This 102-nucleotide RNA sequence from Brevibacillus brevis belongs to the Rfam family "Purine riboswitch aptamer".
NCBI's taxonomy places the organism under Bacteria, Bacillati, Caryophanales, Paenibacillaceae, Brevibacillus brevis.
The base pairs follow the family's consensus structure, which is taken from published work.

RNA sequence: CUUCGAAAAAGAUAGGUAGCUCGUAUAAUUUUGGGAAUAAGGCCCAACCGUUUCUACCAGGUGACCGUAAAUCACCUGACUACGAGUGAAAGUGCGUCUAGG
Number, nucleotide and partner (000 for none) at each position: 001c000002u000003u000004c000005g000006a000007a000008a000009a000010a000011g000012a000013u000014a000015g000016g000017u000018a000019g087020c086021u085022c084023g083024u082025a081026u000027a000028a000029u000030u000031u047032u046033g045034g044035g043036a000037a000038u000039a000040a000041g000042g000043c035044c034045c033046a032047a031048c000049c000050g000051u000052u000053u000054c000055u000056a000057c000058c078059a077060g076061g075062u074063g073064a072065c000066c000067g000068u000069a000070a000071a000072u064073c063074a062075c061076c060077u059078g058079a000080c000081u025082a024083c023084g022085a021086g020087u019088g000089a000090a000091a000092g000093u000094g000095c000096g000097u000098c000099u000100a000101g000102g000
Source information:
A search with the family's covariance model found it, with a score of 84 bits.